A member of the RNA family "Lysine riboswitch aptamer" from Escherichia coli, 197 nucleotides long.
Rfam's curators write: Riboswitches are metabolite binding domains within certain messenger RNAs that serve as precision sensors for their corresponding targets.
Rfam's curators put it in the seed alignment.
Pairs were carried over by alignment from the consensus structure, which is taken from published work.
[Rfam]
RNA sequence: CAGGCCAGAAGAGGCGCGUUGCCCAAGUAACGGUGUUGGAGGAGCCAGUCCUGUGAUAACACCUGAGGGGGUGCAUCGCCGAGGUGAUUGAACGGCUGGCCACGUUCAUCAUCGGCUAAGGGGGCUGAAUCCCCUGGGUUGUCACCAGAAGCGUUCGCAGUCGGGCGUUUCGCAAGUGGUGGAGCACUUCUGGGUGA
Numbered sequence: 001c002a003g004g005c006c007a008g009a010a011g012a013g014g015c016g017c018g019u020u021g022c023c024c025a026a027g028u029a030a031c032g033g034u035g036u037u038g039g040a041g042g043a044g045c046c047a048g049u050c051c052u053g054u055g056a057u058a059a060c061a062c063c064u065g066a067g068g069g070g071g072u073g074c075a076u077c078g079c080c081g082a083g084g085u086g087a088u089u090g091a092a093c094g095g096c097u098g099g100c101c102a103c104g105u106u107c108a109u110c111a112u113c114g115g116c117u118a119a120g121g122g123g124g125c126u127g128a129a130u131c132c133c134c135u136g137g138g139u140u141g142u143c144a145c146c147a148g149a150a151g152c153g154u155u156c157g158c159a160g161u162c163g164g165g166c167g168u169u170u171c172g173c174a175a176g177u178g179g180u181g182g183a184g185c186a187c188u189u190c191u192g193g194g195u196g197a
Stems, first nucleotide, its partner, number of pairs: 006192006016079003020075003024071001032063007083113005089108006114140004119135002122133003142182006